Rfam assigns this 107-nucleotide RNA from Streptomyces smaragdinus to the family "Glycine riboswitch aptamer".
The match comes from Rfam's covariance-model search (38 bits).
The source organism's lineage runs through Bacteria, Bacillati, Kitasatosporales, Streptomycetaceae and Streptomyces.
This family represents the bacterial glycine riboswitch.
[Rfam]
RNA sequence: GCAGCUCUGAAAAGCGGGCACGCGACGCCGUGCCCCACCCAAGGUGCAAGCCAUCCUCGACCGAGGCUGUGGCGAACCUCUCAGGUACCGAUGACAGAGGGGGAGGA
Numbered sequence: 001g002c003a004g005c006u007c008u009g010a011a012a013a014g015c016g017g018g019c020a021c022g023c024g025a026c027g028c029c030g031u032g033c034c035c036c037a038c039c040c041a042a043g044g045u046g047c048a049a050g051c052c053a054u055c056c057u058c059g060a061c062c063g064a065g066g067c068u069g070u071g072g073c074g075a076a077c078c079u080c081u082c083a084g085g086u087a088c089c090g091a092u093g094a095c096a097g098a099g100g101g102g103g104a105g106g107a
Stems, first nucleotide, its partner, number of pairs: 002102001005099005016035006037086003041081001044080001046078001050073005